[Rfam]
The family of this 114-nucleotide RNA sequence from Echeneis naucrates is "Potassium channel RNA editing signal". The family's RNA type in Rfam is cis-regulatory element. The family's consensus secondary structure is taken from published work.
RNA sequence: GUAGGCUACGGGGACAUGUGUCCCAUUACAAUGGGGGGUAAGAUGGUGGGCACCCUGUGCGCCAUCGCUGGUGUGCUGACCAUUGCUUUGCCUGUCCCUGUUAUUGUUUCCAAC
Numbered sequence: 001g002u003a004g005g006c007u008a009c010g011g012g013g014a015c016a017u018g019u020g021u022c023c024c025a026u027u028a029c030a031a032u033g034g035g036g037g038g039u040a041a042g043a044u045g046g047u048g049g050g051c052a053c054c055c056u057g058u059g060c061g062c063c064a065u066c067g068c069u070g071g072u073g074u075g076c077u078g079a080c081c082a083u084u085g086c087u088u089u090g091c092c093u094g095u096c097c098c099u100g101u102u103a104u105u106g107u108u109u110c111c112a113a114c
Base pairs, nucleotide, nucleotide: 001114002113004111005110008107009106010105011104013102014101015100016099018097020095021094037077038076039075040074049063050062051061